[Rfam]
RNA sequence: AUCAGGUGGAGCAGCAACCACUGUAAAAACGGGCGAAACCGAAAAGCCAUACGAGUAGGAAGCAA
Numbered sequence: 001a002u003c004a005g006g007u008g009g010a011g012c013a014g015c016a017a018c019c020a021c022u023g024u025a026a027a028a029a030c031g032g033g034c035g036a037a038a039c040c041g042a043a044a045a046g047c048c049a050u051a052c053g054a055g056u057a058g059g060a061a062g063c064a065a
Stems, first nucleotide, its partner, number of pairs: 006021004032048003039059002
Dot-bracket structure: .....((((........))))..........(((....[[.....))).........]]......

A member of the RNA family "DUF805 RNA" from Niabella ginsenosidivorans, 65 nucleotides long. The family's RNA type in Rfam is cis-regulatory element. The base pairs follow the family's consensus structure, which is taken from published work. The source organism's lineage runs through Bacteria, Bacteroidota, Chitinophagia, Chitinophagaceae and Niabella.